[Rfam]
RNA sequence: GUGCACAUGAUGAAAAUGAUUAUCAGCAUCUGAUUAAAAACGUUGAUGCUUUCAAAGGAACCACUGAUGCAC
Number, nucleotide and partner (000 for none) at each position: 001g072002u071003g070004c069005a068006c000007a000008u000009g000010a000011u000012g000013a000014a000015a000016a000017u000018g000019a000020u000021u000022a000023u000024c000025a000026g000027c000028a000029u000030c000031u000032g000033a000034u000035u000036a000037a000038a000039a000040a000041c000042g000043u000044u000045g000046a000047u000048g000049c000050u000051u000052u000053c000054a000055a000056a000057g000058g000059a000060a000061c000062c000063a000064c000065u000066g000067a000068u005069g004070c003071a002072c001
Shown here is a 72-nucleotide RNA sequence from Lepisosteus oculatus, a member of the family "Small nucleolar RNA SNORD42". From the family's description: snoRNA U42 is found in intron 3 of the ribosomal protein L23a (RPL23a) gene in humans and is also present in mice. Rfam classes the family as a C/D-box small nucleolar RNA. The family has 7 seed sequences and 848 matches in Rfam 15.1. Rfam links the family to the GO terms RNA processing and nucleolus. The literature on the family includes a 2002 paper in Mol Cell Biol by Galardi et al., "Purified box C/D snoRNPs are able to reproduce site-specific 2'-O-methylation of target RNA in vitro".